RNA: azaaromatic riboswitch aptamer (yjdF RNA)
Organism: Calidifontibacillus erzurumensis
RNA sequence: AGUAAGGAAUGUAAAAACACGAUCCGGUUGGUAGUCCGGAUGCAUCAAUAAUUACAUUGAUGUCAGUAACCUUCCCUUCCUCGGGUUGUCCAUCAUUCCUGGAUUAAUA
Numbered sequence: 001a002g003u004a005a006g007g008a009a010u011g012u013a014a015a016a017a018c019a020c021g022a023u024c025c026g027g028u029u030g031g032u033a034g035u036c037c038g039g040a041u042g043c044a045u046c047a048a049u050a051a052u053u054a055c056a057u058u059g060a061u062g063u064c065a066g067u068a069a070c071c072u073u074c075c076c077u078u079c080c081u082c083g084g085g086u087u088g089u090c091c092a093u094c095a096u097u098c099c100u101g102g103a104u105u106a107a108u109a
Stems, first nucleotide, its partner, number of pairs: 005100007022041006042063008074085003